[Rfam]
RNA sequence: GCACCCCAGCAAACCCUCUCCUAGUUCAGUGUGGGACUGUGGUACAACUGGUGCUACAGGGAAUCGAAGUGAGACCAGAUGGGCCUCAUUUCAGUGGAGCCCAUCUCUAUAACUUUGAUACACAG
Number, nucleotide and partner (000 for none) at each position: 001g054002c053003a052004c051005c050006c000007c000008a000009g000010c000011a000012a000013a043014c042015c041016c039017u000018c000019u000020c035021c034022u000023a000024g000025u000026u000027c000028a000029g000030u000031g000032u000033g000034g021035g020036a000037c000038u000039g016040u000041g015042g014043u013044a000045c000046a000047a000048c000049u000050g005051g004052u003053g002054c001055u000056a000057c000058a000059g000060g000061g000062a000063a000064u118065c117066g116067a115068a114069g113070u000071g000072a000073g000074a000075c000076c000077a106078g105079a104080u103081g102082g101083g100084c099085c000086u000087c000088a000089u000090u000091u097092c096093a000094g000095u000096g092097g091098a000099g084100c083101c082102c081103a080104u079105c078106u077107c000108u000109a000110u000111a000112a000113c069114u068115u067116u066117g065118a064119u000120a000121c000122a000123c000124a000125g000